The record is a 224-nucleotide RNA sequence from Geodia barretti, which matches "Group II catalytic intron D1-D4-6" in Rfam. A search with the family's covariance model found it, with a score of 174 bits. Its family is annotated with Group II intron splicing in the Gene Ontology. For this family Rfam cites "The ins and outs of group II introns" (Bonen and Vogel, Trends Genet, 2001). The organism belongs to Geodia, within Eukaryota.
RNA sequence: GAAGUCCGGCAGAGGGAAGGAGUAACCGACCACCUUCACCCCGAGUCAUGCGCCGGUCGCUGUGAGGCGACAGGCGAAGCGUUGACAGGGGCGCGAACGGGCAGGGCUACUGAGCAUCGAAAGGUUGCAUGUCUGGAGUGCCGAGACCGUGCCUGUGGUUGAAGGCAACACCGCCAUCACCGCGACUGGUGAGGGGAUGGUGGACUCCACGGUGUCGGAGAACC
Numbered sequence: 001g002a003a004g005u006c007c008g009g010c011a012g013a014g015g016g017a018a019g020g021a022g023u024a025a026c027c028g029a030c031c032a033c034c035u036u037c038a039c040c041c042c043g044a045g046u047c048a049u050g051c052g053c054c055g056g057u058c059g060c061u062g063u064g065a066g067g068c069g070a071c072a073g074g075c076g077a078a079g080c081g082u083u084g085a086c087a088g089g090g091g092c093g094c095g096a097a098c099g100g101g102c103a104g105g106g107c108u109a110c111u112g113a114g115c116a117u118c119g120a121a122a123g124g125u126u127g128c129a130u131g132u133c134u135g136g137a138g139u140g141c142c143g144a145g146a147c148c149g150u151g152c153c154u155g156u157g158g159u160u161g162a163a164g165g166c167a168a169c170a171c172c173g174c175c176a177u178c179a180c181c182g183c184g185a186c187u188g189g190u191g192a193g194g195g196g197a198u199g200g201u202g203g204a205c206u207c208c209a210c211g212g213u214g215u216c217g218g219a220g221a222a223c224c
Stems, first nucleotide, its partner, number of pairs: 012037005019031002023192001025190002039091004045086004049081002051076004056071006111218001112216001114215006134209006140166003145160004171203008180194002
Dot-bracket structure: ...........(((((..((..[.[[...)).))))).((((..((((((((((.((((((....)))))).))))...)).)))).))))...................((.((((((..............(((((((((..((((........))))...)))....((((((((.((.......]].])).))))))))))))))))))))).)......